[Rfam]
Small nucleolar RNA SNORD47: a 76-nucleotide RNA from Nothobranchius furzeri. It is annotated as a C/D-box small nucleolar RNA. NCBI's taxonomy places the organism under Eukaryota, Craniata, Teleostei, Percomorphaceae, Nothobranchius.
RNA sequence: UGCCAGUGAUGACAAGAUUCUGCCAAAUGACUAUCAUUGAUUAUAACCCCUUACCGUUCCAUUUUUGUCUGAGGCA
Numbered sequence: 001u002g003c004c005a006g007u008g009a010u011g012a013c014a015a016g017a018u019u020c021u022g023c024c025a026a027a028u029g030a031c032u033a034u035c036a037u038u039g040a041u042u043a044u045a046a047c048c049c050c051u052u053a054c055c056g057u058u059c060c061a062u063u064u065u066u067g068u069c070u071g072a073g074g075c076a
Base pairs, nucleotide, nucleotide: 001076002075003074004073